U11 spliceosomal RNA: a 159-nucleotide RNA sequence from Racocetra fulgida.
[Rfam]
RNA sequence: UAAAAGGGUGUGUGGCGAUAUUUCUUUACUUACAAGGGAUAUCAAAUGCUACAUGAACUUUACUGUUCAUGCAGAAUCGUCAUCAAGAGAUUUUGCGCACAUAAUUUUUUGAGGUUAAUGGGUGGUUGUCUUGGCUUCGCUCAAGCCGACGCCGCCCUC
Numbered sequence: 001u002a003a004a005a006g007g008g009u010g011u012g013u014g015g016c017g018a019u020a021u022u023u024c025u026u027u028a029c030u031u032a033c034a035a036g037g038g039a040u041a042u043c044a045a046a047u048g049c050u051a052c053a054u055g056a057a058c059u060u061u062a063c064u065g066u067u068c069a070u071g072c073a074g075a076a077u078c079g080u081c082a083u084c085a086a087g088a089g090a091u092u093u094u095g096c097g098c099a100c101a102u103a104a105u106u107u108u109u110u111g112a113g114g115u116u117a118a119u120g121g122g123u124g125g126u127u128g129u130c131u132u133g134g135c136u137u138c139g140c141u142c143a144a145g146c147c148g149a150c151g152c153c154g155c156c157c158u159c
Stems, first nucleotide, its partner, number of pairs: 008100005013051005052071007072095007120157004125153001127151003133147004

A search with the family's covariance model found it, with a score of 72 bits.
The base pairs follow the family's consensus structure, which is taken from published work.
For this family Rfam cites "Additional low-abundance human small nuclear ribonucleoproteins: U11, U12, etc" (Montzka and Steitz, Proc Natl Acad Sci U S A, 1988).
Rfam classes the family as a spliceosomal small nuclear RNA.